[Rfam]
RNA: Phenylalanine leader peptide
Organism: Providencia alcalifaciens
RNA sequence: CAUGAAACUAAAUGCUGUUUUCUUUUUCUUCUUUAGCCACUCACAUUAAGGGGCUUUUGUCGUUCGAGAAAAAAAAGAAGACAAUAUUUUAAAGCCUCCUACCUAGGGGGCUUUUUUAUU
Numbered sequence: 001c002a003u004g005a006a007a008c009u010a011a012a013u014g015c016u017g018u019u020u021u022c023u024u025u026u027u028c029u030u031c032u033u034u035a036g037c038c039a040c041u042c043a044c045a046u047u048a049a050g051g052g053g054c055u056u057u058u059g060u061c062g063u064u065c066g067a068g069a070a071a072a073a074a075a076a077g078a079a080g081a082c083a084a085u086a087u088u089u090u091a092a093a094g095c096c097u098c099c100u101a102c103c104u105a106g107g108g109g110g111c112u113u114u115u116u117u118a119u120u
Base pairs, nucleotide, nucleotide: 012087013086014085017082018081019080020079021078022077023076024075025074026073027072029070030069032067033066035064038051040050041049052061053060054059091114092113093112094111095110096109097108098107099106100105